Shown here is a 62-nucleotide sequence from Sphingomonas lenta, a member of the family "terC RNA".
[Rfam]
RNA sequence: CCAAUGAUCCGGGCCCCUCUGGCGACCGUCCGAGCCGACGGCCGCGAUGUCGGAUCGCACUG
Numbered sequence: 001c002c003a004a005u006g007a008u009c010c011g012g013g014c015c016c017c018u019c020u021g022g023c024g025a026c027c028g029u030c031c032g033a034g035c036c037g038a039c040g041g042c043c044g045c046g047a048u049g050u051c052g053g054a055u056c057g058c059a060c061u062g
Stems, first nucleotide, its partner, number of pairs: 006056007022045003026041004
The organism belongs to Sphingomonas, within Bacteria.
The family's RNA type in Rfam is cis-regulatory element.